[Rfam]
RNA sequence: UCCACGGCGAGGUGGAAUCUGAAGGAAGCUGGCGGCAAAACUCCGCCCCGAUGAACACGAAUCUCAUCAGGCAUAUCCAACGGGAUGAGUCUGCCAUACAAGACAAAGUCCAAAGAUUACACGGACGUUCGCAUGUAGAUGAGGCGGGGACAUGGAGUGAAAGUGUGUUAGC
Numbered sequence: 001u002c003c004a005c006g007g008c009g010a011g012g013u014g015g016a017a018u019c020u021g022a023a024g025g026a027a028g029c030u031g032g033c034g035g036c037a038a039a040a041c042u043c044c045g046c047c048c049c050g051a052u053g054a055a056c057a058c059g060a061a062u063c064u065c066a067u068c069a070g071g072c073a074u075a076u077c078c079a080a081c082g083g084g085a086u087g088a089g090u091c092u093g094c095c096a097u098a099c100a101a102g103a104c105a106a107a108g109u110c111c112a113a114a115g116a117u118u119a120c121a122c123g124g125a126c127g128u129u130c131g132c133a134u135g136u137a138g139a140u141g142a143g144g145c146g147g148g149g150a151c152a153u154g155g156a157g158u159g160a161a162a163g164u165g166u167g168u169u170a171g172c
Stems, first nucleotide, its partner, number of pairs: 001016005028172005035164002040158006046149005062144005071136003077131001079129004083111004089104004
Dot-bracket structure: (((((......)))))...........(((((..((...(((((((((((...........(((((....(((...(.((((((((..((((........))))...))))..............)))).)..)))...))))))))))...))))))....))...)))))

Group II catalytic intron D1-D4-3: a 172-nucleotide sequence from Nitritalea halalkaliphila. Rfam describes the family as follows. Group II introns are found in rRNA, tRNA and mRNA of organelles in fungi, plants and protists, and also in mRNA in bacteria. For this family Rfam cites "The ins and outs of group II introns" (Bonen and Vogel, Trends Genet, 2001). A search with the family's covariance model found it, with a score of 136 bits. NCBI's taxonomy places the organism under Bacteria, Pseudomonadati, Cytophagales, Nitritalea, Nitritalea halalkaliphila.